[Rfam]
RNA sequence: UUGCCCAUUUAAGGCUGUCAGUGUCUUGGGUGGCCAACACAGGGGGGAACAGCACUCCUCUCUUAAACCCGAAGCAGAGGUGCCGUCUCUGGUUCGGAUCCUGUCGGGAGGAACACAU
Numbered sequence: 001u002u003g004c005c006c007a008u009u010u011a012a013g014g015c016u017g018u019c020a021g022u023g024u025c026u027u028g029g030g031u032g033g034c035c036a037a038c039a040c041a042g043g044g045g046g047g048a049a050c051a052g053c054a055c056u057c058c059u060c061u062c063u064u065a066a067a068c069c070c071g072a073a074g075c076a077g078a079g080g081u082g083c084c085g086u087c088u089c090u091g092g093u094u095c096g097g098a099u100c101c102u103g104u105c106g107g108g109a110g111g112a113a114c115a116c117a118u
Base pairs, nucleotide, nucleotide: 002049004047005046006045008043009042010041014038016036017035019030056112058110059109060108061107062106069097070096071095072094073093075091077089078088079087
The record is a 118-nucleotide RNA sequence from Lepisosteus oculatus, which matches "Small nucleolar RNA SNORA26" in Rfam. The base pairs follow the family's consensus structure, which was predicted with RNAalifold. From the family's description: The snoRNA HBI-6 belong to the H/ACA family of snoRNAs, guiding the pseudouridylation of position U4522 if the 28S rRNA. HBI-6 is the human orthologue of mouse MBI-6 snoRNA. Rfam classes the family as an H/ACA-box small nucleolar RNA. The organism belongs to Lepisosteus, within Eukaryota. The family has 76 seed sequences and 1,943 matches in Rfam 15.1. Its family is annotated with nucleolus and RNA processing in the Gene Ontology. Its Rfam clan is "SNORA27 clan".